[Rfam]
RNA sequence: CCCCCAAUGGCAGAGGGAUGCGACCAGCUCCUGCUGAACUCCCCCAGGCUGGGAACAGAGCAAGGGUAGGCGGUUGUAGCGGUGCGACAUCCUGAUGCCUUUUU
Numbered sequence: 001c002c003c004c005c006a007a008u009g010g011c012a013g014a015g016g017g018a019u020g021c022g023a024c025c026a027g028c029u030c031c032u033g034c035u036g037a038a039c040u041c042c043c044c045c046a047g048g049c050u051g052g053g054a055a056c057a058g059a060g061c062a063a064g065g066g067u068a069g070g071c072g073g074u075u076g077u078a079g080c081g082g083u084g085c086g087a088c089a090u091c092c093u094g095a096u097g098c099c100u101u102u103u104u
Base pairs, nucleotide, nucleotide: 009099010098011097012096016092017091018090019089020088021086022085023083024082
Notes: Rfam assigns this 104-nucleotide RNA sequence from a Cytophagia bacterium to the family "Bacteroidales small SRP". Lineage of the source: Bacteria > Pseudomonadati > Bacteroidota > Cytophagia. Clan: SRP clan. The family's RNA type in Rfam is non-coding RNA gene.